[Rfam]
RNA sequence: AGCUGAUGAUGACUAUAUUUGCUACUCUUGAUUAUAAAUGAUGAAAUAAAUUACCACCAAGCUUUAGUCUGAAGCU
Numbered sequence: 001a002g003c004u005g006a007u008g009a010u011g012a013c014u015a016u017a018u019u020u021g022c023u024a025c026u027c028u029u030g031a032u033u034a035u036a037a038a039u040g041a042u043g044a045a046a047u048a049a050a051u052u053a054c055c056a057c058c059a060a061g062c063u064u065u066a067g068u069c070u071g072a073a074g075c076u
Base pairs, nucleotide, nucleotide: 001076002075003074004073
RNA: Small nucleolar RNA SNORD24
Organism: Araneus ventricosus